[Rfam]
RNA sequence: AGGUGAUAUCUCCUUACCGUUAUCAAUGGAGGUACUCGGCUAUACUGUGGUAGAUGAUUAAGUCAAUGUUUUCUCCAUUCAGCAGUAUGUUAAUGGACCUCAAGAAAGAACUCAAAUUUAUUAGGCCAUGCAUAUUACGUAAGGAAAGCAUUAUUUUUACAAUUGUCUGCUUAGACGCUAGUCGUCAGAGGUAUAGUGUGAGGAGGGGUUAGAUGCCCU
Numbered sequence: 001a002g003g004u005g006a007u008a009u010c011u012c013c014u015u016a017c018c019g020u021u022a023u024c025a026a027u028g029g030a031g032g033u034a035c036u037c038g039g040c041u042a043u044a045c046u047g048u049g050g051u052a053g054a055u056g057a058u059u060a061a062g063u064c065a066a067u068g069u070u071u072u073c074u075c076c077a078u079u080c081a082g083c084a085g086u087a088u089g090u091u092a093a094u095g096g097a098c099c100u101c102a103a104g105a106a107a108g109a110a111c112u113c114a115a116a117u118u119u120a121u122u123a124g125g126c127c128a129u130g131c132a133u134a135u136u137a138c139g140u141a142a143g144g145a146a147a148g149c150a151u152u153a154u155u156u157u158u159a160c161a162a163u164u165g166u167c168u169g170c171u172u173a174g175a176c177g178c179u180a181g182u183c184g185u186c187a188g189a190g191g192u193a194u195a196g197u198g199u200g201a202g203g204a205g206g207g208g209u210u211a212g213a214u215g216c217c218c219u
Stems, first nucleotide, its partner, number of pairs: 002018003007034007035202004039197008049171011174186004205219005
The record is a 219-nucleotide RNA, which matches "epsC RNA" in Rfam. It is annotated as a cis-regulatory element.